[Rfam]
Nucleotides: 061
Stems, first nucleotide, its partner, number of pairs: 017045011
Number, partner (000 for none) and nucleotide at each position: 001000u002000g003000c004000a005000a006000c007000a008000c009000c010000c011000a012000c013000c014000a015000a016000a017045a018044g019043g020042g021041u022040a023039g024038u025037u026036c027035c028000c029000c030000a031000c032000c033000u034000a035027g036026g037025a038024g039023c040022u041021a042020c043019u044018u045017u046000a047000c048000u049000c050000u051000a052000u053000u054000c055000u056000g057000a058000a059000u060000u061000c
A member of the RNA family "Plastid-psbN 5UTR RNA" from Protea cynaroides, 61 nucleotides long. It is annotated as a cis-regulatory element. From the family's description: Plastid psbN is a non-coding RNA (ncRNA) recognised in plastids. It was reported as a conserved 11 stem-loop in the prime untranslated region (5UTR) of psbN genes. It has been reported that the motif is retained in a subset of mature transcripts in barley, which can suggests a possible role in transcript alternative 5 prime processing. It scores 75 bits against the family's covariance model. For this family Rfam cites "Retrograde signaling in plants: A critical review focusing on the GUN pathway and beyond" (Richter et al., Plant Commun, 2023). The base pairs follow the family's consensus structure, which was predicted with LocARNA.